[Rfam]
Rfam assigns this 331-nucleotide sequence from Acetobacteraceae bacterium AT-5844 to the family "Alphaproteobacteria transfer-messenger RNA".
The match comes from Rfam's covariance-model search (215 bits).
Pairs were carried over by alignment from the consensus structure, which is taken from published work.
Rfam's curators write: Bacterial tmRNA, also known as 10Sa RNA or SsrA, is named for its dual tRNA and mRNA-like properties. Its role is to liberate the mRNA from a stalled ribosome.
RNA sequence: CCUCUCGAUUUCCGCGCGAGGAUCGCCUAUAUCCCGCUUGCUCACCUUCGGGUGGCUAUGGCGAUAAACGGUAUUUGGAAUAAGCAUUGCGGACCCGGGGGCAGUGCCCGGCGUCUCCACCAAUUCACCCGCCAGGGAUCGUAUGGCGGUGGCAUGGGGACGACACAGCUUCGACGCGUGCGGUAAAGACUUACCUUUUGCCCGGCAUUGUACCGCCGUUAUCGGGCUAUAUCACAAGUGCCAACGAUAACAGCCGCGAGGCUGUGGCGCUCGCUGCCUAACAAUAGGUAAGCGCCGCCCGGGGGGAGCGGGGCAACAGAAUCCCCCCACU
Numbered sequence: 001c002c003u004c005u006c007g008a009u010u011u012c013c014g015c016g017c018g019a020g021g022a023u024c025g026c027c028u029a030u031a032u033c034c035c036g037c038u039u040g041c042u043c044a045c046c047u048u049c050g051g052g053u054g055g056c057u058a059u060g061g062c063g064a065u066a067a068a069c070g071g072u073a074u075u076u077g078g079a080a081u082a083a084g085c086a087u088u089g090c091g092g093a094c095c096c097g098g099g100g101g102c103a104g105u106g107c108c109c110g111g112c113g114u115c116u117c118c119a120c121c122a123a124u125u126c127a128c129c130c131g132c133c134a135g136g137g138a139u140c141g142u143a144u145g146g147c148g149g150u151g152g153c154a155u156g157g158g159g160a161c162g163a164c165a166c167a168g169c170u171u172c173g174a175c176g177c178g179u180g181c182g183g184u185a186a187a188g189a190c191u192u193a194c195c196u197u198u199u200g201c202c203c204g205g206c207a208u209u210g211u212a213c214c215g216c217c218g219u220u221a222u223c224g225g226g227c228u229a230u231a232u233c234a235c236a237a238g239u240g241c242c243a244a245c246g247a248u249a250a251c252a253g254c255c256g257c258g259a260g261g262c263u264g265u266g267g268c269g270c271u272c273g274c275u276g277c278c279u280a281a282c283a284a285u286a287g288g289u290a291a292g293c294g295c296c297g298c299c300c301g302g303g304g305g306g307a308g309c310g311g312g313g314c315a316a317c318a319g320a321a322u323c324c325c326c327c328c329a330c331u
Stems, first nucleotide, its partner, number of pairs: 040056002043054003060202005070195004076189001085180003089177003095111005112162007203218004208229001210227001213225002295311004301328006

The organism belongs to Acetobacteraceae, within Bacteria.